Source information
t44 RNA: a 90-nucleotide RNA from Vibrio sp. qd031. The match comes from Rfam's covariance-model search (82 bits). Rfam describes the family as follows. This family consists of a number of bacterial RNA genes of between 135 and 170 bases in length. The t44 gene has been identified in several species of enteric bacteria but homologs have also been identified in Pseudomonas and Coxiella species. The t44 gene is found between the map and rpsB genes in all species in the full alignment apart from Shigella flexneri. The function of this RNA is unknown.
RNA sequence: UUAAAUUUUUAUUAAACUCACACACAUUUCGUCACGUAAUCCGGGGUGCCUGAAAUAAGGUCGGUGUUACGGGGAAUGUGGAGGCCUAAC
Numbered sequence: 001u002u003a004a005a006u007u008u009u010u011a012u013u014a015a016a017c018u019c020a021c022a023c024a025c026a027u028u029u030c031g032u033c034a035c036g037u038a039a040u041c042c043g044g045g046g047u048g049c050c051u052g053a054a055a056u057a058a059g060g061u062c063g064g065u066g067u068u069a070c071g072g073g074g075a076a077u078g079u080g081g082a083g084g085c086c087u088a089a090c
Stems, first nucleotide, its partner, number of pairs: 023080008035071005041064003048061004